RNA sequence: GUUCCUGUUUUAGUACCGCCCAUCCGCUUCCUGUCCGGGUGUGUGGCUAUGCUAACAGGAUAGAUGAACGUCUGUCAUGAUCUGAGGGGGUGUGUGGCCACGCCCCCACUGCCCCUACAUGAGAUGGCAGCACAGUGAUGU
Numbered sequence: 001g002u003u004c005c006u007g008u009u010u011u012a013g014u015a016c017c018g019c020c021c022a023u024c025c026g027c028u029u030c031c032u033g034u035c036c037g038g039g040u041g042u043g044u045g046g047c048u049a050u051g052c053u054a055a056c057a058g059g060a061u062a063g064a065u066g067a068a069c070g071u072c073u074g075u076c077a078u079g080a081u082c083u084g085a086g087g088g089g090g091u092g093u094g095u096g097g098c099c100a101c102g103c104c105c106c107c108a109c110u111g112c113c114c115c116u117a118c119a120u121g122a123g124a125u126g127g128c129a130g131c132a133c134a135g136u137g138a139u140g141u
Stems, first nucleotide, its partner, number of pairs: 004059004016046004074128004